[Rfam]
RNA: tRNA
Organism: Collinsella sp. BA40
RNA sequence: GCCAGCAUAGCUCAGUUGGUAGAGCACCGCUCUCGUAAAGCGGGGGUCACCAGUUCAAGCCUGGUUGCUGGCU
Numbered sequence: 001g002c003c004a005g006c007a008u009a010g011c012u013c014a015g016u017u018g019g020u021a022g023a024g025c026a027c028c029g030c031u032c033u034c035g036u037a038a039a040g041c042g043g044g045g046g047u048c049a050c051c052a053g054u055u056c057a058a059g060c061c062u063g064g065u066u067g068c069u070g071g072c073u
Stems, first nucleotide, its partner, number of pairs: 001072007010025004027043005049065005